The record is a 98-nucleotide RNA from Propionigenium maris, which matches "Purine riboswitch aptamer" in Rfam. The family's consensus secondary structure is taken from published work.
RNA sequence: CAAAAGAUUGAUAUAAUCACUUAUAUAUACCCAUAAUAUGGUUGGGAGUUUCUACGUGACGCCGUAAAUGUCACGCUAUAGGUGAAGGUAGAGGGGUA
Number, nucleotide and partner (000 for none) at each position: 001c000002a000003a000004a000005a000006g000007a000008u000009u000010g000011a000012u000013a000014u000015a000016a000017u000018c084019a083020c082021u081022u080023a079024u078025a077026u000027a000028u000029a000030c046031c045032c044033a043034u000035a000036a000037u000038a000039u000040g000041g000042u000043u033044g032045g031046g030047a000048g000049u000050u000051u000052c000053u000054a000055c000056g074057u073058g072059a071060c070061g069062c000063c000064g000065u000066a000067a000068a000069u061070g060071u059072c058073a057074c056075g000076c000077u025078a024079u023080a022081g021082g020083u019084g018085a000086a000087g000088g000089u000090a000091g000092a000093g000094g000095g000096g000097u000098a000